Shown here is a 92-nucleotide sequence from Sorghum bicolor, a member of the family "MIR5387 microRNA precursor family". Taxonomically the source falls in Sorghum (Eukaryota, Streptophytina, Embryophyta, Andropogoneae). Rfam links the family to the GO terms RISC complex and miRNA-mediated post-transcriptional gene silencing. The match comes from Rfam's covariance-model search (69 bits). Pairs were carried over by alignment from the consensus structure, which was predicted with RNAalifold.
RNA sequence: UCGUGUUACAAACCGGUGCUAAAGGGUCCUGCCCAACGGCUACGGACAUGUGCUGUCGGGGCAGGGACCCUUUAGCACCGGUUUUUAACAAG
Numbered sequence: 001u002c003g004u005g006u007u008a009c010a011a012a013c014c015g016g017u018g019c020u021a022a023a024g025g026g027u028c029c030u031g032c033c034c035a036a037c038g039g040c041u042a043c044g045g046a047c048a049u050g051u052g053c054u055g056u057c058g059g060g061g062c063a064g065g066g067a068c069c070c071u072u073u074a075g076c077a078c079c080g081g082u083u084u085u086u087a088a089c090a091a092g
Base pairs, nucleotide, nucleotide: 004090005089006088007087008086010084011083012082013081014080015079016078017077018076019075020074021073022072023071024070025069026068027067029065030064032060033059034058036056037055